[Rfam]
Nucleotides: 128
Stems, first nucleotide, its partner, number of pairs: 002056007013045009022035003069121004076114003081110002084103003088099001090097002
Number, partner (000 for none) and nucleotide at each position: 001000g002056g003055g004054g005053u006052g007051u008050g009000c010000u011000c012000a013045g014044a015043g016042c017041a018040g019039g020038g021037g022035g023034c024033c025000c026000a027000a028000a029000g030000a031000a032000u033024g034023g035022c036000u037021c038020c039019u040018c041017u042016g043015u044014u045013u046000a047000c048000a049000a050008c051007a052006c053005a054004c055003c056002c057000a058000a059000c060000a061000g062000g063000a064000g065000u066000c067000u068000g069121g070120g071119g072118u073000c074000a075000u076114u077113g078112u079000g080000a081110u082109g083000a084103g085102g086101g087000c088099c089000u090097c091096a092000a093000a094000c095000u096091u097090g098000u099088g100000g101086c102085u103084u104000c105000c106000c107000u108000a109082u110081g111000a112078a113077c114076a115000a116000a117000u118072g119071u120070c121069c122000c123000c124000c125000c126000a127000c128000a

Small nucleolar RNA SNORA11: a 128-nucleotide RNA sequence from Theropithecus gelada. Gene Ontology terms of the family: RNA processing and nucleolus. For this family Rfam cites "A novel experimental approach for systematic identification of box H/ACA snoRNAs from eukaryotes" (Gu et al., Nucleic Acids Res, 2005). The organism belongs to Theropithecus, within Eukaryota. Pairs were carried over by alignment from the consensus structure, which was predicted with RNAalifold. Rfam 15.1 lists 2,014 matches to the family in 202 species. U107 (SNORA11) is a member of the H/ACA class of snoRNAs that guide the sites of modification of uridines to pseudouridines. By type it is an H/ACA-box small nucleolar RNA.